[Rfam]
RNA sequence: GCGUGGGUCGGCCCGCUGGCGGGAACCAGUGGGCUGGGGGAUGCCGCCGCCCCGCUCCCCGCGGGCGGCGGUCCGGUCCGGGGGGUGAACGAUGUCCUCCGGACCGCA
Numbered sequence: 001g002c003g004u005g006g007g008u009c010g011g012c013c014c015g016c017u018g019g020c021g022g023g024a025a026c027c028a029g030u031g032g033g034c035u036g037g038g039g040g041a042u043g044c045c046g047c048c049g050c051c052c053c054g055c056u057c058c059c060c061g062c063g064g065g066c067g068g069c070g071g072u073c074c075g076g077u078c079c080g081g082g083g084g085g086u087g088a089a090c091g092a093u094g095u096c097c098u099c100c101g102g103a104c105c106g107c108a
Base pairs, nucleotide, nucleotide: 001107002106006074007073009036010035011034012033013032014031015030016029017028018027037042044071045070046069047068048067049066050065051064052063075105076104077103078102079101080100081099082098083097084096085095086094087093

The family of this 108-nucleotide RNA sequence from Streptomyces somaliensis is "Streptomyces RNA 4115". From the family's description: Identified by deep sequencing of transcriptome at the end of exponential growth phase. Sequencing size consistent with notrthern blot size. By type it is a small RNA. The match comes from Rfam's covariance-model search (79 bits). Pairs were carried over by alignment from the consensus structure.